[Rfam]
RNA sequence: CGCCCGGGCUUUGCCUUGACGGGGGCGGGUAGUCUCUUUAGACUCAUGCACCCCUAAAUUUGGCAGGGCAUGUUGCUCUGCCAUUUUGCUUUACCCGUAAAGCAAUAGCGUCGAAAGACAACAGUGGAGCUUAUAGA
Numbered sequence: 001c002g003c004c005c006g007g008g009c010u011u012u013g014c015c016u017u018g019a020c021g022g023g024g025g026c027g028g029g030u031a032g033u034c035u036c037u038u039u040a041g042a043c044u045c046a047u048g049c050a051c052c053c054c055u056a057a058a059u060u061u062g063g064c065a066g067g068g069c070a071u072g073u074u075g076c077u078c079u080g081c082c083a084u085u086u087u088g089c090u091u092u093a094c095c096c097g098u099a100a101a102g103c104a105a106u107a108g109c110g111u112c113g114a115a116a117g118a119c120a121a122c123a124g125u126g127g128a129g130c131u132u133a134u135a136g137a
Stems, first nucleotide, its partner, number of pairs: 004018001006016004022053003025049003029045001031044001034041002061083009104134001107131003110119003
Pseudomonas rpsL leader: a 137-nucleotide RNA sequence from Pseudomonas fluvialis. NCBI's taxonomy places the organism under Bacteria, Pseudomonadota, Gammaproteobacteria, Pseudomonadales, Pseudomonas. The match comes from Rfam's covariance-model search (107 bits).